RNA: MAT2A 3'UTR stem loop A
Nucleotides: 065
Stems, first nucleotide, its partner, number of pairs: 001065004009058002013054002019047002023043003026034002
Number, partner (000 for none) and nucleotide at each position: 001065g002064c003063u004062u005000u006000u007000u008000c009058c010057u011000c012000c013054c014053a015000u016000u017000c018000c019047c020046a021000c022000a023043a024042g025041u026034g027033u028000a029000g030000g031000c032000u033027a034026c035000a036000g037000a038000g039000a040000a041025g042024c043023u044000c045000g046020u047019g048000u049000g050000c051000u052000c053014u054013g055000g056000a057010g058009g059000a060000a061000a062004g063003a064002g065001c